[Rfam]
RNA: FMN riboswitch aptamer (RFN element)
RNA sequence: UACGUGCUCCGGGGUCGGUGUAAGUCCGAACCGGCGGUGAUAGUCCGCGACCCGUUCCUCGUUCCGCACCCGCGGGACGGCGGCGGUUGAGCCGGUGGAAUUCCGGGACCGACAGUCAAAGUCUGGAUGGGAGAAGCACGAA
Numbered sequence: 001u002a003c004g005u006g007c008u009c010c011g012g013g014g015u016c017g018g019u020g021u022a023a024g025u026c027c028g029a030a031c032c033g034g035c036g037g038u039g040a041u042a043g044u045c046c047g048c049g050a051c052c053c054g055u056u057c058c059u060c061g062u063u064c065c066g067c068a069c070c071c072g073c074g075g076g077a078c079g080g081c082g083g084c085g086g087u088u089g090a091g092c093c094g095g096u097g098g099a100a101u102u103c104c105g106g107g108a109c110c111g112a113c114a115g116u117c118a119a120a121g122u123c124u125g126g127a128u129g130g131g132a133g134a135a136g137c138a139c140g141a142a
Stems, first nucleotide, its partner, number of pairs: 003140006010133001016028003030122002032111002034048004043109002052086005092106004113125003